[Rfam]
RNA sequence: CUCUCCUACAAAGGUAUGUCUGUGGUUCCCUGUCUUUGGACACGUAAGAAUUGGGUGUAAAGUAAUGUAGCCUUGGAGAAGUCUGGGGCCAGCUUACUCCCUGCAGGCUCAAGAUCAACCAUCUCACAUAC
Dot-bracket structure: .(.(((........(.(((((..((...)).......))))).)........))).)...........((..(.................(((((.(.....).)))))...........).)).......
RNA: Small nucleolar RNA SNORA38
Organism: Phyllostomus discolor